[Rfam]
Rfam assigns this 374-nucleotide RNA sequence from Prevotella sp. tf2-5 to the family "Bacterial RNase P class A".
Nucleotides: 374
Base pairs, nucleotide, nucleotide: 001370002369003368005366006365007364008363009362010361011359012323013322014321015320016319017318018317020052021051023049024048025047026046057357058356059355061354062353063352064351065350066218067217068216069215073252074251075250076249078214079213080212081211082210083098084097085096086095087094099114101112102111103110104109115209121205122204123203135152136151137148138147139146140145160178161177162176163175164174165173180200181198182197183196184195185194186193187192222280223279224278225277233270234269235268236267237266244256245255246254247253288305289304290303291302292301293300294299
Number, partner (000 for none) and nucleotide at each position: 001370g002369c003368a004000g005366u006365g007364c008363c009362u010361u011359g012323g013322c014321u015320u016319g017318u018317c019000g020052c021051u022000g023049g024048u025047g026046u027000c028000a029000a030000c031000a032000g033000c034000c035000g036000u037000a038000u039000a040000g041000g042000u043000u044000g045000a046026a047025c048024a049023c050000g051021a052020g053000a054000g055000g056000a057357a058356a059355g060000u061354c062353c063352g064351g065350g066218c067217a068216g069215c070000a071000a072000a073252g074251g075250g076249c077000a078214c079213c080212c081211c082210a083098c084097u085096u086095c087094u088000g089000a090000a091000a092000a093000u094087g095086g096085a097084a098083g099114c100000a101112g102111c103110u104109g105000g106000u107000g108000a109104c110103a111102g112101u113000u114099g115209g116000u117000g118000u119000c120000g121205g122204g123203a124000g125000a126000a127000g128000a129000a130000a131000a132000u133000a134000a135152c136151c137148g138147c139146c140145c141000g142000c143000a144000a145140g146139g147138g148137u149000a150000a151136g152135g153000g154000u155000g156000a157000g158000a159000a160178g161177g162176u163175g164174g165173u166000g167000u168000a169000a170000g171000a172000g173165a174164c175163c176162a177161c178160c179000a180200g181198c182197c183196a184195c185194u186193g187192g188000g189000u190000g191000a192187u193186c194185a195184g196183u197182g198181g199000g200180c201000u202000g203123u204122u205121c206000u207000a208000u209115c210082u211081g212080g213079g214078g215069g216068c217067u218066g219000c220000a221000a222280g223279u224278u225277c226000a227000u228000g229000u230000a231000a232000a233270c234269c235268a236267u237266c238000g239000u240000c241000u242000g243000a244256g245255g246254g247253c248000u249076g250075c251074c252073c253247g254246u255245c256244c257000g258000a259000g260000u261000a262000a263000u264000a265000c266237g267236a268235u269234g270233g271000a272000g273000g274000g275000u276000a277225g278224a279223a280222u281000g282000c283000u284000a285000g286000a287000g288305c289304c290303g291302c292301a293300g294299g295000g296000u297000g298000a299294c300293u301292u302291g303290c304289g305288g306000a307000g308000u309000a310000g311000a312000u313000a314000a315000a316000u317018g318017a319016c320015a321014g322013g323012c324000u325000c326000c327000u328000u329000c330000c331000u332000g333000u334000a335000u336000g337000g338000g339000a340000a341000g342000a343000g344000a345000c346000a347000g348000a349000a350065c351064c352063c353062g354061g355059c356058u357057u358000a359011c360000a361010g362009a363008g364007g365006c366005a367000g368003u369002g370001c371000u372000u373000u374000u
Lineage of the source: Bacteria > Pseudomonadati > Bacteroidia > Bacteroidales > Prevotella. Pairs were carried over by alignment from the consensus structure, which is taken from published work. Rfam links the family to the GO terms ribonuclease P activity, dimeric ribonuclease P complex and tRNA processing.